[Rfam]
Rfam assigns this 131-nucleotide RNA sequence to the family "ALIL pseudoknot". Rfam classes the family as a cis-regulatory element.

RNA sequence: CGCGUUUUUCGCCCAGGCGGAGCUCGACCGCAAACUUCGCUGAUCUGUGAGUACGUUGGCGGUCACCGUGACCGUUUCGGAGUCGAGCCGAUUUGCGCCGUCCUGAGCGAGUACGGGGUGCAGAUCGCUCC
Numbered sequence: 001c002g003c004g005u006u007u008u009u010c011g012c013c014c015a016g017g018c019g020g021a022g023c024u025c026g027a028c029c030g031c032a033a034a035c036u037u038c039g040c041u042g043a044u045c046u047g048u049g050a051g052u053a054c055g056u057u058g059g060c061g062g063u064c065a066c067c068g069u070g071a072c073c074g075u076u077u078c079g080g081a082g083u084c085g086a087g088c089c090g091a092u093u094u095g096c097g098c099c100g101u102c103c104u105g106a107g108c109g110a111g112u113a114c115g116g117g118g119u120g121c122a123g124a125u126c127g128c129u130c131c
Stems, first nucleotide, its partner, number of pairs: 017031004079131004089127002092124007
A search with the family's covariance model found it, with a score of 66 bits.